[Rfam]
RNA sequence: UGCAGGAGAAACCAUUAUGAGCGAAGCGAAUAAUUUAGGAUGGUUUCGACGAUAUGCCGCCGAACGGCUGUGGGGGGGCGAUACCCGAG
Numbered sequence: 001u002g003c004a005g006g007a008g009a010a011a012c013c014a015u016u017a018u019g020a021g022c023g024a025a026g027c028g029a030a031u032a033a034u035u036u037a038g039g040a041u042g043g044u045u046u047c048g049a050c051g052a053u054a055u056g057c058c059g060c061c062g063a064a065c066g067g068c069u070g071u072g073g074g075g076g077g078g079c080g081a082u083a084c085c086c087g088a089g
Stems, first nucleotide, its partner, number of pairs: 008047006016032003021027001056079003060075002064071002

The family of this 89-nucleotide sequence is "GA-cis RNA". The family's RNA type in Rfam is small RNA. The base pairs follow the family's consensus structure, which is taken from published work. The sequence is in the family's curated seed alignment.